[Rfam]
Description:
A member of the RNA family "Small nucleolar RNA SNORA74" from Onychostoma macrolepis, 198 nucleotides long. Taxonomically the source falls in Onychostoma (Eukaryota, Actinopteri, Osteoglossocephalai, Otophysi). Rfam classes the family as an H/ACA-box small nucleolar RNA. It scores 86 bits against the family's covariance model. The literature on the family includes a 1996 paper in Mol Cell Biol by Kiss et al., "Characterization of the intron-encoded U19 RNA, a new mammalian small nucleolar RNA that is not associated with fibrillarin". From the family's description: U19 belongs to the H/ACA class of snoRNAs. snoRNAs bind a number of proteins (including dyskerin, Gar1p and Nop10p in the case of the H/ACA class) to form snoRNP complexes. This class are thought to guide the sites of modification of uridines to pseudouridines by forming direct base pairing interactions with substrate RNAs. Targets may include ribosomal and spliceosomal RNAs but the exact functions of many snoRNAs, including U19, are not confirmed. Its family is annotated with nucleolus and RNA processing in the Gene Ontology.
Nucleotides: 198
Stems, first nucleotide, its partner, number of pairs: 002058007011050002015045004021038005067135003072132002074129002080126005086118001089115002092112001094109001097107003138192007152179003156175003160172004
Number, partner (000 for none) and nucleotide at each position: 001000c002058c003057c004056a005055g006054c007053g008052g009000u010000a011050g012049u013000c014000a015045g016044c017043u018042g019000u020000g021038c022037a023036g024035g025034c026000c027000a028000g029000u030000c031000c032000a033000u034025g035024c036023c037022u038021g039000a040000g041000c042018u043017a044016g045015u046000g047000u048000u049012a050011c051000u052008c053007u054006g055005c056004u057003g058002g059000a060000a061000g062000a063000g064000a065000a066000a067135g068134c069133u070000g071000c072132u073131g074129c075128c076000g077000u078000u079000u080126g081125u082124g083123c084122u085000c086118c087000u088000c089115c090114a091000g092112g093000u094109u095000u096000g097107g098106c099105u100000g101000u102000u103000u104000u105099a106098g107097u108000g109094a110000a111000u112092c113000c114090u115089g116000c117000u118086g119000u120000g121000u122084a123083g124082c125081a126080c127000a128075g129074g130000u131073c132072a133069a134068g135067c136000u137000g138192u139191g140190c141189c142188u143187u144186c145000u146000g147000a148000g149000a150000g151000u152179g153178g154177u155000c156175u157174g158173u159000g160172c161171u162170c163169a164000c165000a166000a167000a168000a169163u170162g171161a172160g173158g174157c175156a176000g177154g178153c179152c180000u181000a182000g183000u184000c185000u186144g187143g188142g189141g190140g191139c192138g193000a194000a195000c196000a197000u198000g